[Rfam]
RNA sequence: UUUGGGAGAUGAUGAGAAAAUUAAUCAGAGGCACCAGCUCUGCUGAAAUUCUAUUUUGCACGUCAGUCUGAUCCCAGA
Numbered sequence: 001u002u003u004g005g006g007a008g009a010u011g012a013u014g015a016g017a018a019a020a021u022u023a024a025u026c027a028g029a030g031g032c033a034c035c036a037g038c039u040c041u042g043c044u045g046a047a048a049u050u051c052u053a054u055u056u057u058g059c060a061c062g063u064c065a066g067u068c069u070g071a072u073c074c075c076a077g078a
Stems, first nucleotide, its partner, number of pairs: 001078007
This 78-nucleotide RNA sequence from Populus trichocarpa belongs to the Rfam family "Small nucleolar RNA Z122". The base pairs follow the family's consensus structure, which was predicted with PFOLD. Taxonomically the source falls in Populus (Eukaryota, Tracheophyta, Euphyllophyta, Salicaceae). Rfam links the family to the GO terms RNA processing and nucleolus. Rfam's curators put it in the seed alignment. Rfam 15.1 lists 822 matches to the family in 247 species. Rfam classes the family as a C/D-box small nucleolar RNA. For this family Rfam cites "Seven novel methylation guide small nucleolar RNAs are processed from a common polycistronic transcript by Rat1p and RNase III in yeast" (Qu et al., Mol Cell Biol, 1999).